[Rfam]
RNA sequence: UUCUUAUCCAGAGAGGUGGAGGGACUGGCCCUAUGAAACCCGGCAACCAUCAAGCAUUCGCUUGGAAGGUGCCAAUUCCAACAAAGCGUGUGCUUUGAAAGAUGAGAG
Numbered sequence: 001u002u003c004u005u006a007u008c009c010a011g012a013g014a015g016g017u018g019g020a021g022g023g024a025c026u027g028g029c030c031c032u033a034u035g036a037a038a039c040c041c042g043g044c045a046a047c048c049a050u051c052a053a054g055c056a057u058u059c060g061c062u063u064g065g066a067a068g069g070u071g072c073c074a075a076u077u078c079c080a081a082c083a084a085a086g087c088g089u090g091u092g093c094u095u096u097g098a099a100a101g102a103u104g105a106g107a108g
Base pairs, nucleotide, nucleotide: 001108002107003106004105005104006103007102008101013041015040016039017038021031022030023029026080027079028078042073043072044071045070047069048068050065051064052063053062077100082097083096084095085094086093087092
RNA: SAM riboswitch aptamer (S box leader)
Organism: Paenalkalicoccus suaedae